[Rfam]
RNA sequence: AGGUGAGGUAGAGGCGCGGAGGCAAUGAGUAGGCUUUGGGAGAAUGACAUCGAUGAUCGAAGCUAAAAGGUAAAUCCGCCGAAGUGAAAGAGAAUUGUCACAUUCGCUUUUGCUGGGACAGCAUUGAAUAAAUGUUGAACUGUCACGAUGCAAGUCAUCGUGGAGAACUACUACUGAA
Numbered sequence: 001a002g003g004u005g006a007g008g009u010a011g012a013g014g015c016g017c018g019g020a021g022g023c024a025a026u027g028a029g030u031a032g033g034c035u036u037u038g039g040g041a042g043a044a045u046g047a048c049a050u051c052g053a054u055g056a057u058c059g060a061a062g063c064u065a066a067a068a069g070g071u072a073a074a075u076c077c078g079c080c081g082a083a084g085u086g087a088a089a090g091a092g093a094a095u096u097g098u099c100a101c102a103u104u105c106g107c108u109u110u111u112g113c114u115g116g117g118a119c120a121g122c123a124u125u126g127a128a129u130a131a132a133u134g135u136u137g138a139a140c141u142g143u144c145a146c147g148a149u150g151c152a153a154g155u156c157a158u159c160g161u162g163g164a165g166a167a168c169u170a171c172u173a174c175u176g177a178a
Base pairs, nucleotide, nucleotide: 007172008171009170010169011168016079017078018077019076020075024071032064033063034062035061036060037059038058039057083114084113085112086111087110088109089108090107092105093104094103115141116140119137120136121135122134123133124132125131143163144162145161146160147159148158149157
Rfam assigns this 178-nucleotide RNA sequence from Alkalihalobacillus trypoxylicola to the family "Lysine riboswitch aptamer".
The source organism's lineage runs through Bacteria, Bacillati, Caryophanales, Bacillaceae and Alkalihalobacillus.
Pairs were carried over by alignment from the consensus structure, which is taken from published work.